Overview
This 78-nucleotide RNA from Ailuropoda melanoleuca belongs to the Rfam family "let-7 microRNA precursor family". The family's consensus secondary structure was predicted with RNAalifold. Gene Ontology terms of the family: RISC complex and miRNA-mediated post-transcriptional gene silencing. Lineage of the source: Eukaryota > Tetrapoda > Eutheria > Boreoeutheria > Ailuropoda. A search with the family's covariance model found it, with a score of 71 bits. On this family, see Rougvie, Nat Rev Genet 2001: "Control of developmental timing in animals".

RNA sequence: UUGGGGUGAGGUAGUAGGUUGUAUAGUUUGGGGCUCGGCCCUGCUGUGGGUGACUAUACAACCUACUGUCUUUCCUGA
Numbered sequence: 001u002u003g004g005g006g007u008g009a010g011g012u013a014g015u016a017g018g019u020u021g022u023a024u025a026g027u028u029u030g031g032g033g034c035u036c037g038g039c040c041c042u043g044c045u046g047u048g049g050g051u052g053a054c055u056a057u058a059c060a061a062c063c064u065a066c067u068g069u070c071u072u073u074c075c076u077g078a
Stems, first nucleotide, its partner, number of pairs: 001078006008072020031041004044049001